The record is a 158-nucleotide sequence from Litomosoides sigmodontis, which matches "Nematode snoRNA ceN88" in Rfam. Lineage of the source: Eukaryota > Protostomia > Ecdysozoa > Nematoda > Litomosoides. The match comes from Rfam's covariance-model search (52 bits). The family has 6 seed sequences and 99 matches in Rfam 15.1. Rfam classes the family as an H/ACA-box small nucleolar RNA.
[Rfam]
RNA sequence: AUCCUCGGUUCUUGGCGCUCUGAUGUCAGUCUGUUCAUCAGGUGUGUAUGCAAUAAUCGGAGGUAAAGUAGGUUGUGCCAAGUGGCGCAGCGGUCGAAUCACCUUCGGUGUCAAGCAUCUUCCAGUGCUUGAUAUCAUCCUCUGGAUUCGAAACAUUU
Numbered sequence: 001a002u003c004c005u006c007g008g009u010u011c012u013u014g015g016c017g018c019u020c021u022g023a024u025g026u027c028a029g030u031c032u033g034u035u036c037a038u039c040a041g042g043u044g045u046g047u048a049u050g051c052a053a054u055a056a057u058c059g060g061a062g063g064u065a066a067a068g069u070a071g072g073u074u075g076u077g078c079c080a081a082g083u084g085g086c087g088c089a090g091c092g093g094u095c096g097a098a099u100c101a102c103c104u105u106c107g108g109u110g111u112c113a114a115g116c117a118u119c120u121u122c123c124a125g126u127g128c129u130u131g132a133u134a135u136c137a138u139c140c141u142c143u144g145g146a147u148u149c150g151a152a153a154c155a156u157u158u
Base pairs, nucleotide, nucleotide: 003063004062005061006060008058010056015047016046017045018044020041021040022039023038024037025036094151095150096149097148098147099146100145107136108135111132112131113130114129115128116127117126118125